Shown here is an 87-nucleotide RNA sequence from Patiria miniata, a member of the family "mir-2008 microRNA precursor family". It is one of the family's seed sequences. Lineage of the source: Eukaryota > Bilateria > Deuterostomia > Asterinidae > Patiria. The base pairs follow the family's consensus structure, which was predicted with RNAalifold.

RNA sequence: CCAUCUUUUACCCCGUAUUAACACUGCGGCUGAUGAGGGCUGUUAAACCAACCAUCAGCCUCGCUGUCAAUACGAGGUAAGGGCUGA
Number, nucleotide and partner (000 for none) at each position: 001c000002c086003a085004u000005c083006u082007u081008u080009u079010a078011c077012c076013c000014c074015g073016u072017a071018u070019u069020a000021a067022c066023a065024c000025u063026g062027c000028g060029g059030c058031u057032g056033a055034u054035g053036a000037g000038g000039g000040c000041u000042g000043u000044u000045a000046a000047a000048c000049c000050a000051a000052c000053c035054a034055u033056c032057a031058g030059c029060c028061u000062c026063g025064c000065u023066g022067u021068c000069a019070a018071u017072a016073c015074g014075a000076g012077g011078u010079a009080a008081g007082g006083g005084c000085u003086g002087a000